[Rfam]
RNA sequence: CCGAGUCGAAGGCCACAUCCCCCGCACCACCUGUGGCCGACGAGCCGGGGAACCACACUUCCCCCUGGGGUGAAUCCCCUGUGAGGCGCACUGCGCGAGCGGUGCGUGGAGCAGGGGUAGGACAUGUCGUGCCGAACCCGUCAGCUCACCCGGUAGG
Numbered sequence: 001c002c003g004a005g006u007c008g009a010a011g012g013c014c015a016c017a018u019c020c021c022c023c024g025c026a027c028c029a030c031c032u033g034u035g036g037c038c039g040a041c042g043a044g045c046c047g048g049g050g051a052a053c054c055a056c057a058c059u060u061c062c063c064c065c066u067g068g069g070g071u072g073a074a075u076c077c078c079c080u081g082u083g084a085g086g087c088g089c090a091c092u093g094c095g096c097g098a099g100c101g102g103u104g105c106g107u108g109g110a111g112c113a114g115g116g117g118u119a120g121g122a123c124a125u126g127u128c129g130u131g132c133c134g135a136a137c138c139c140g141u142c143a144g145c146u147c148a149c150c151c152g153g154u155a156g157g
Base pairs, nucleotide, nucleotide: 001157002156006043007042008041044154045153046152047151048150049149054067055066068139069138070137076117077116078115079114080113081112082111120133121132123131
RNA: c-di-AMP riboswitch aptamer (ydaO/yuaA leader)